RNA sequence: UAGUGUAGUUUCAAUGAAUGAAUUCACCUGCGAGAUGACAUGACAGUUUCACCUAGGACAAGGACAUGGCAUCCUAUUACCAGCAAUCGCACGAAAUUAAUAGGAUGCCACGUCCUCAUCCUAGAUGGAACAAUCAUCUCAUCUCACAGGUGAAUCCAUUCAUUGAUAGCGUGGUU
Numbered sequence: 001u002a003g004u005g006u007a008g009u010u011u012c013a014a015u016g017a018a019u020g021a022a023u024u025c026a027c028c029u030g031c032g033a034g035a036u037g038a039c040a041u042g043a044c045a046g047u048u049u050c051a052c053c054u055a056g057g058a059c060a061a062g063g064a065c066a067u068g069g070c071a072u073c074c075u076a077u078u079a080c081c082a083g084c085a086a087u088c089g090c091a092c093g094a095a096a097u098u099a100a101u102a103g104g105a106u107g108c109c110a111c112g113u114c115c116u117c118a119u120c121c122u123a124g125a126u127g128g129a130a131c132a133a134u135c136a137u138c139u140c141a142u143c144u145c146a147c148a149g150g151u152g153a154a155u156c157c158a159u160u161c162a163u164u165g166a167u168a169g170c171g172u173g174g175u176u
Stems, first nucleotide, its partner, number of pairs: 002175001004173003009168001011166005017160003022155007030147001032145002035142004041136003046131003051126001054123002057120002063114003069108011086097002
A member of the RNA family "MIR807 microRNA precursor family" from Oryza sativa, 176 nucleotides long. The family has 30 seed sequences and 1,514 matches in Rfam 15.1. Gene Ontology terms of the family: RISC complex and miRNA-mediated post-transcriptional gene silencing. The base pairs follow the family's consensus structure, which was predicted with WAR.